[Rfam]
RNA: caulobacter sRNA CC2171
RNA sequence: CAACAACCGAAAGGAGGUGAUCCAGUGUCUCAUUGUCUCUCGCCGCGGUCUCCGGCUACGACCUGGAUCCUCGCCUCUGCCGAGGUCCGCGCCGCGUAAGCGGUGUCCGCGGUCCUCGCCGGACCCGGUUCGACAAUGGAAGGGCUGCCCUCGCGGGCAGCCCU
Dot-bracket structure: ...............((....)).......(((((((......(..((((.........))))..)(((..............))).(((..(.(....)..).)..))......(((.......)))...)))))))..((((((((((....))))))))))